[Rfam]
RNA sequence: ACACGGGAAAGGAGGUGGUCCGGGCUUUGUAUGGCGAUAGGACUCGUGAGGUGGCUGUCCGCUAGCCGCUGUCCUUGACAGUUUCGGGUCCGCCGUACGGCGGGCACGUGCCAGAAAUCGUCGAGACCGUGUGGCAGCGGUACGGCGAAUCCACGUCAGCCACCCGGCCCCCGGGGCGCCGGCCCUUGUCCAGUCGGCGCCUGCGUGACCAGCGUCAUGCGGGAACCCCGGGGGUCGACCAUU
Numbered sequence: 001a002c003a004c005g006g007g008a009a010a011g012g013a014g015g016u017g018g019u020c021c022g023g024g025c026u027u028u029g030u031a032u033g034g035c036g037a038u039a040g041g042a043c044u045c046g047u048g049a050g051g052u053g054g055c056u057g058u059c060c061g062c063u064a065g066c067c068g069c070u071g072u073c074c075u076u077g078a079c080a081g082u083u084u085c086g087g088g089u090c091c092g093c094c095g096u097a098c099g100g101c102g103g104g105c106a107c108g109u110g111c112c113a114g115a116a117a118u119c120g121u122c123g124a125g126a127c128c129g130u131g132u133g134g135c136a137g138c139g140g141u142a143c144g145g146c147g148a149a150u151c152c153a154c155g156u157c158a159g160c161c162a163c164c165c166g167g168c169c170c171c172c173g174g175g176g177c178g179c180c181g182g183c184c185c186u187u188g189u190c191c192a193g194u195c196g197g198c199g200c201c202u203g204c205g206u207g208a209c210c211a212g213c214g215u216c217a218u219g220c221g222g223g224a225a226c227c228c229c230g231g232g233g234g235u236c237g238a239c240c241a242u243u
Stems, first nucleotide, its partner, number of pairs: 014059006060147003063142002066139001068138004073133001165237012178198006
Shown here is a 243-nucleotide RNA sequence from Micromonospora sp. HM5-17, a member of the family "Actinobacteria sRNA Ms_IGR-5". The organism belongs to Micromonospora, within Bacteria. For this family Rfam cites "Identification of small RNAs in Mycobacterium smegmatis using heterologous Hfq" (Li et al., RNA, 2013). It scores 86 bits against the family's covariance model.